The family of this 337-nucleotide part of an RNA from Aureimonas endophytica is "Bacterial large subunit ribosomal RNA". Its family is annotated with ribosome and structural constituent of ribosome in the Gene Ontology. A search with the family's covariance model found it, with a score of 2643 bits. The base pairs follow the family's consensus structure, which is taken from published work.
[Rfam]
Nucleotides: 337
Stems, first nucleotide, its partner, number of pairs: 001337004009332008018323003035059005044049001060087012088092001100316004105311002107308002111125003128164008136154001140150003167303004172233003177230002179226005186221003192215002197210005234252006253257001263290001273289006
Number, partner (000 for none) and nucleotide at each position: 001337u002336g003335a004334g005000a006000g007000a008000a009332c010331u011330c012329u013328g014327c015326u016325g017000a018323a019322g020321g021000a022000a023000c024000u025000c026000g027000g028000c029000a030000a031000a032000u033000u034000g035059c036058a037057c038056g039055c040000g041000u042000a043000a044049c045000u046000u047000c048000g049044g050000a051000a052000g053000a054000a055039g056038c057037g058036u059035g060087a061086c062085c063084c064083u065082u066081u067080u068079g069078g070077a071076c072000g073000c074000a075000a076071g077070u078069u079068c080067g081066a082065g083064g084063g085062g086061g087060u088092g089000g090000c091000a092088c093000a094000g095000a096000c097000c098000a099000g100316g101315g102314g103313g104000u105311a106310g107308c108307g109000a110000c111125u112124g113123u114000u115000u116000a117000c118000c119000a120000a121000a122000a123113a124112c125111a126000c127000a128164g129163g130162g131161c132160u133159c134158u135157g136154c137000g138000a139000a140150g141149u142148c143000u144000g145000u146000a147000a148142g149141a150140c151000g152000a153000c154136g155000u156000a157135u158134a159133g160132g161131g162130u163129c164128u165000g166000a167303c168302g169301c170300c171000u172233g173232c174231c175000c176000g177230g178229u179226g180225c181224u182223g183222g184000a185000a186221g187220g188219u189000u190000a191000a192215g193214u194000g195000g196000a197210g198209g199208g200207g201206u202000g203000c204000a205000a206201g207200c208199u209198c210197u211000g212000a213000a214193a215192c216000g217000a218000a219188g220187c221186c222183c223182c224181a225180g226179u227000a228000a229178a230177c231174g232173g233172c234252g235251g236250c237249c238248g239247u240000a241000a242000c243000u244000a245000u246000a247239a248238c249237g250236g251235u252234c253257c254000u255000a256000a257253g258000g259000u260000a261000g262000c263290g264000a265000a266000a267000u268000u269000c270000c271000u272000u273289g274288u275287c276286g277285g278284g279000u280000a281000a282000g283000u284278u285277c286276c287275g288274a289273c290263c291000u292000g293000c294000a295000c296000g297000a298000a299000u300170g301169g302168c303167g304000u305000a306000a307108c308107g309000a310106c311105u312000u313103c314102c315101c316100c317000g318000c319000u320000g321020u322019c323018u324000c325016c326015a327014g328013c329012a330011g331010a332009g333000a334004c335003u336002c337001a